Shown here is a 257-nucleotide RNA sequence from Faecalibacterium duncaniae, a member of the family "T-box leader". Lineage of the source: Bacteria > Bacillota > Eubacteriales > Oscillospiraceae > Faecalibacterium. It scores 111 bits against the family's covariance model. Rfam's curators write: Uncharged tRNA acts as the effector for transcription antitermination of genes in the T-box leader family. T-boxes are found upstream of many aminoacyl-tRNA synthetase genes and some amino acid biosynthetic genes usually in Gram-positive bacteria.
[Rfam]
RNA sequence: UAUUCGGCUAUGACGAGAAAGAGUACCCGGAAAGAAUGCUGCAGAGAGCUGCCGGAUGGUGCAAGGCAGUGCAGGGUGUCCGUGGGAAGAUCCUCUCCGAGCUUUCCGGCUGAAUGGGCGGCAUCUGCGCCCCAGUAAGCGGGAACGGCAGGCCCCCGUUAUCACGGGCCGCGCAUUGUUGGAUGCGCACUGAGGGGCCGGGCUUUGCACCGGCAAUAAGAGUGGUACCGCAGAGGAUCUACGCCUUUGUCUCUUAC
Numbered sequence: 001u002a003u004u005c006g007g008c009u010a011u012g013a014c015g016a017g018a019a020a021g022a023g024u025a026c027c028c029g030g031a032a033a034g035a036a037u038g039c040u041g042c043a044g045a046g047a048g049c050u051g052c053c054g055g056a057u058g059g060u061g062c063a064a065g066g067c068a069g070u071g072c073a074g075g076g077u078g079u080c081c082g083u084g085g086g087a088a089g090a091u092c093c094u095c096u097c098c099g100a101g102c103u104u105u106c107c108g109g110c111u112g113a114a115u116g117g118g119c120g121g122c123a124u125c126u127g128c129g130c131c132c133c134a135g136u137a138a139g140c141g142g143g144a145a146c147g148g149c150a151g152g153c154c155c156c157c158g159u160u161a162u163c164a165c166g167g168g169c170c171g172c173g174c175a176u177u178g179u180u181g182g183a184u185g186c187g188c189a190c191u192g193a194g195g196g197g198c199c200g201g202g203c204u205u206u207g208c209a210c211c212g213g214c215a216a217u218a219a220g221a222g223u224g225g226u227a228c229c230g231c232a233g234a235g236g237a238u239c240u241a242c243g244c245c246u247u248u249g250u251c252u253c254u255u256a257c
Stems, first nucleotide, its partner, number of pairs: 007102002015097004026085002028082004037073003048070006105144003109140003146158003197214005219254004230250007